[Rfam]
Rfam assigns this 379-nucleotide RNA sequence from Pseudohongiella nitratireducens to the family "Bacterial RNase P class A". It is annotated as a ribozyme. NCBI's taxonomy places the organism under Bacteria, Pseudomonadati, Pseudomonadota, Pseudomonadales, Pseudohongiella. The family's consensus secondary structure is taken from published work. Gene Ontology terms of the family: ribonuclease P activity, tRNA processing and dimeric ribonuclease P complex. Rfam describes the family as follows. Ribonuclease P (RNase P) is a ubiquitous endoribonuclease, found in archaea, bacteria and eukarya as well as chloroplasts and mitochondria.
RNA sequence: CGAGCUGGCCAGGCAGUCGCUGCCCGGUUGCUGGUUUUGCGCAGUUUUGCGUGAAUUCGGCACCAGGUGGAGGAAAGUCCGGGCUCCAAAGAGCAAAGCGCCAGGUAACGCCUGGGGGGUGAAAGCCCACGGAAAGUGCAGCAGAGAGUAGACCGCCUAAGCGCAUAGCGCCGGUAAGGGUGAAAGGGUGCGGUAAGAGCGCACCGCGCGACUGGUAACAGUUCGUGGCAUGGUAAACCCCGCUUGGAGCAAGGCCAAAUAGGGACCCUUCGGUGUGGCUCGCACUGGGUCCGGGUAGGCUGCUUGAGGUUGAUAGUGAUAUCAAUCCCAGAUGAAUGACUGUCCCAGACAGAACCCGGCUUAUCGGCCAGCUCGAUUU
Numbered sequence: 001c002g003a004g005c006u007g008g009c010c011a012g013g014c015a016g017u018c019g020c021u022g023c024c025c026g027g028u029u030g031c032u033g034g035u036u037u038u039g040c041g042c043a044g045u046u047u048u049g050c051g052u053g054a055a056u057u058c059g060g061c062a063c064c065a066g067g068u069g070g071a072g073g074a075a076a077g078u079c080c081g082g083g084c085u086c087c088a089a090a091g092a093g094c095a096a097a098g099c100g101c102c103a104g105g106u107a108a109c110g111c112c113u114g115g116g117g118g119g120u121g122a123a124a125g126c127c128c129a130c131g132g133a134a135a136g137u138g139c140a141g142c143a144g145a146g147a148g149u150a151g152a153c154c155g156c157c158u159a160a161g162c163g164c165a166u167a168g169c170g171c172c173g174g175u176a177a178g179g180g181u182g183a184a185a186g187g188g189u190g191c192g193g194u195a196a197g198a199g200c201g202c203a204c205c206g207c208g209c210g211a212c213u214g215g216u217a218a219c220a221g222u223u224c225g226u227g228g229c230a231u232g233g234u235a236a237a238c239c240c241c242g243c244u245u246g247g248a249g250c251a252a253g254g255c256c257a258a259a260u261a262g263g264g265a266c267c268c269u270u271c272g273g274u275g276u277g278g279c280u281c282g283c284a285c286u287g288g289g290u291c292c293g294g295g296u297a298g299g300c301u302g303c304u305u306g307a308g309g310u311u312g313a314u315a316g317u318g319a320u321a322u323c324a325a326u327c328c329c330a331g332a333u334g335a336a337u338g339a340c341u342g343u344c345c346c347a348g349a350c351a352g353a354a355c356c357c358g359g360c361u362u363a364u365c366g367g368c369c370a371g372c373u374c375g376a377u378u379u
Stems, first nucleotide, its partner, number of pairs: 001375010011364001012344007020070005026064003075362003079359005084249004091281004096245005101115005116130001117128004131240002136238002138234002153179002155175003161169002187205006206229001207227005212221003253301004263292006272286005308327008